[Rfam]
RNA sequence: CAGGCAUGCUGGAGCCCCGCAGCGGCGCCUGGGAUCCAUUGACCCGACACCGUUCUCAACUCCGGGGCUUAU
Numbered sequence: 001c002a003g004g005c006a007u008g009c010u011g012g013a014g015c016c017c018c019g020c021a022g023c024g025g026c027g028c029c030u031g032g033g034a035u036c037c038a039u040u041g042a043c044c045c046g047a048c049a050c051c052g053u054u055c056u057c058a059a060c061u062c063c064g065g066g067g068c069u070u071a072u
Stems, first nucleotide, its partner, number of pairs: 012070008023052003030046004